[Rfam]
RNA: Small nucleolar RNA SNORA27
Organism: Otolemur garnettii
Nucleotides: 126
Stems, first nucleotide, its partner, number of pairs: 032059005040051003069119006082104001083102008
Number, partner (000 for none) and nucleotide at each position: 001000u002000g003000c004000c005000c006000c007000c008000u009000u010000u011000u012000u013000a014000c015000u016000u017000u018000g019000c020000c021000a022000g023000u024000u025000a026000g027000a028000c029000u030000u031000a032059u033058g034057u035056c036055u037000u038000u039000a040051u041050u042049g043000g044000u045000c046000a047000u048000g049042u050041a051040a052000g053000u054000g055036g056035g057034g058033c059032a060000a061000a062000g063000c064000a065000a066000a067000u068000a069119u070118c071117c072116u073115u074114u075000c076000a077000a078000a079000a080000c081000u082104c083102a084101g085100g086099c087098a088097a089096a090095c091000u092000g093000g094000u095090g096089u097088u098087u099086g100085u101084c102083u103000u104082g105000a106000a107000u108000c109000u110000u111000g112000u113000c114074a115073a116072a117071g118070g119069a120000a121000a122000c123000a124000a125000a126000u